[Rfam]
RNA sequence: UAUUAUCUUCAGGGCAGGGUGAAAUUCCCGACCGGCGGUUAUAGUCCGCGAGCGUAAAAGCUGACUUGGUGUAAUUCCAAGACCGACAGUAAAGUCUGGAUGGAAGAGGAUUGUA
Numbered sequence: 001u002a003u004u005a006u007c008u009u010c011a012g013g014g015c016a017g018g019g020u021g022a023a024a025u026u027c028c029c030g031a032c033c034g035g036c037g038g039u040u041a042u043a044g045u046c047c048g049c050g051a052g053c054g055u056a057a058a059a060g061c062u063g064a065c066u067u068g069g070u071g072u073a074a075u076u077c078c079a080a081g082a083c084c085g086a087c088a089g090u091a092a093a094g095u096c097u098g099g100a101u102g103g104a105a106g107a108g109g110a111u112u113g114u115a
Stems, first nucleotide, its partner, number of pairs: 003113001005111006017029003031095002033085002035049004044083002052061002065081005087098003
RNA: FMN riboswitch aptamer (RFN element)
Organism: Alkalibaculum sporogenes